The family of this 88-nucleotide RNA from Medicago truncatula is "MIR2617 microRNA precursor family". Taxonomically the source falls in Medicago (Eukaryota, Streptophyta, Pentapetalae, fabids).
[Rfam]
RNA sequence: AAGUAGCGUGACAUGCCCGUUUUGGGAUAUACUCUGAAGUGUUUAUUUAUUAUUUAAUUGCUUUGGGAUAACAGGGUGUUACAUAGAU
Dot-bracket structure: .(.(.(.(((((((.((.(((................................................))).))))))))).).).)
Numbered sequence: 001a002a003g004u005a006g007c008g009u010g011a012c013a014u015g016c017c018c019g020u021u022u023u024g025g026g027a028u029a030u031a032c033u034c035u036g037a038a039g040u041g042u043u044u045a046u047u048u049a050u051u052a053u054u055u056a057a058u059u060g061c062u063u064u065g066g067g068a069u070a071a072c073a074g075g076g077u078g079u080u081a082c083a084u085a086g087a088u
Stems, first nucleotide, its partner, number of pairs: 002088001004086001006084001008082007016075002019072003